[Rfam]
RNA sequence: CGGCUGUAGCUACACAGAUCCAUCGUUUUGAGAAGUUUUACUGGCCGGUGGUUGUUUAUUUCCGUCAACAUAUCUGCUUACCGAGCUUCUCACAUCU
Number, nucleotide and partner (000 for none) at each position: 001c000002g000003g000004c000005u000006g000007u000008a000009g000010c000011u000012a000013c000014a000015c000016a000017g000018a000019u000020c000021c000022a000023u000024c000025g000026u000027u000028u000029u000030g091031a090032g089033a088034a087035g086036u085037u084038u000039u000040a000041c000042u000043g078044g077045c076046c000047g074048g073049u072050g071051g069052u068053u067054g066055u000056u000057u000058a000059u000060u000061u000062c000063c000064g000065u000066c054067a053068a052069c051070a000071u050072a049073u048074c047075u000076g045077c044078u043079u000080a000081c000082c000083g000084a037085g036086c035087u034088u033089c032090u031091c030092a000093c000094a000095u000096c000097u000

The record is a 97-nucleotide sequence from Actinidia chinensis, which matches "Small nucleolar RNA snoR109" in Rfam. A reference for the family is Marker et al. (2002), "Experimental RNomics: identification of 140 candidates for small non-messenger RNAs in the plant Arabidopsis thaliana", Curr Biol. Lineage of the source: Eukaryota > Streptophyta > eudicotyledons > Ericales > Actinidia chinensis. The family's RNA type in Rfam is H/ACA-box small nucleolar RNA.